Record summary: Shown here is an 89-nucleotide sequence from Tetranychus urticae, a member of the family "mir-252 microRNA precursor family". Rfam's curators put it in the seed alignment. Its Rfam clan is "mir-252 microRNA precursor family".

[Rfam]
RNA sequence: UCCUGUUCUAAGUACUAGCGCCGCAGGAGUGUUUACAUCUCUUUUGGUAUAUUAAAUUCACUCCUGCAGCCUUGGUGCUUACUAUGGGA
Numbered sequence: 001u002c003c004u005g006u007u008c009u010a011a012g013u014a015c016u017a018g019c020g021c022c023g024c025a026g027g028a029g030u031g032u033u034u035a036c037a038u039c040u041c042u043u044u045u046g047g048u049a050u051a052u053u054a055a056a057u058u059c060a061c062u063c064c065u066g067c068a069g070c071c072u073u074g075g076u077g078c079u080u081a082c083u084a085u086g087g088g089a
Base pairs, nucleotide, nucleotide: 001089002088003087004086005085006084009081010080011079012078013077014076015075016074017073018072023067024066025065026064027063028062029061030060031059